[Rfam]
RNA sequence: UUCCAUCGUUAAGUCAAGGCUCCUUCUGCAUUUCGAGUGCUCUUUGCAAUGGAAGGCCGUCUGUUACAACUUUGGUAGAAUGAACCCUUACUCGCCGCUCCUGGUCUUCGGAACUUGAGUAGACAGCUCACCGUCUUGGAGAGUCUGUCGUAAAGAGUUUGGGUAUGUUUCGUUUGAGUUGAAGACCACUUCCUCCCUUAUGUUGGUGGCUUGUGGUGGUCUUCUUAGUUAUGAUUCAUACAUAC
Numbered sequence: 001u002u003c004c005a006u007c008g009u010u011a012a013g014u015c016a017a018g019g020c021u022c023c024u025u026c027u028g029c030a031u032u033u034c035g036a037g038u039g040c041u042c043u044u045u046g047c048a049a050u051g052g053a054a055g056g057c058c059g060u061c062u063g064u065u066a067c068a069a070c071u072u073u074g075g076u077a078g079a080a081u082g083a084a085c086c087c088u089u090a091c092u093c094g095c096c097g098c099u100c101c102u103g104g105u106c107u108u109c110g111g112a113a114c115u116u117g118a119g120u121a122g123a124c125a126g127c128u129c130a131c132c133g134u135c136u137u138g139g140a141g142a143g144u145c146u147g148u149c150g151u152a153a154a155g156a157g158u159u160u161g162g163g164u165a166u167g168u169u170u171c172g173u174u175u176g177a178g179u180u181g182a183a184g185a186c187c188a189c190u191u192c193c194u195c196c197c198u199u200a201u202g203u204u205g206g207u208g209g210c211u212u213g214u215g216g217u218g219g220u221c222u223u224c225u226u227a228g229u230u231a232u233g234a235u236u237c238a239u240a241c242a243u244a245c
Base pairs, nucleotide, nucleotide: 003075004074005073017062018061019060020059022056023055024054025053026052027051029039030038031037032036086163087162090158091157099113101111102110103109122149123148124147125146126145127143128142129141131139132138133137165239166238167237170234171233172232173231181224182223183222184221187218188217189216190215193208195206196202
Small nucleolar RNA snR191: a 245-nucleotide RNA sequence from Amorphotheca resinae. A search with the family's covariance model found it, with a score of 49 bits. For this family Rfam cites "A snoRNA that guides the two most conserved pseudouridine modifications within rRNA confers a growth advantage in yeast" (Badis et al., RNA, 2003). Rfam links the family to the GO terms RNA processing and nucleolus.